[Rfam]
RNA: mir-302_2 microRNA precursor family
RNA sequence: UGGGUAAGUGCUUCCAUGCUUCAGUUUCCUUACUGGUAAGAUGGAUGUAGUAAUAGCACCUACCUUA
Numbered sequence: 001u002g003g004g005u006a007a008g009u010g011c012u013u014c015c016a017u018g019c020u021u022c023a024g025u026u027u028c029c030u031u032a033c034u035g036g037u038a039a040g041a042u043g044g045a046u047g048u049a050g051u052a053a054u055a056g057c058a059c060c061u062a063c064c065u066u067a
Stems, first nucleotide, its partner, number of pairs: 002065005008059005013045005021036005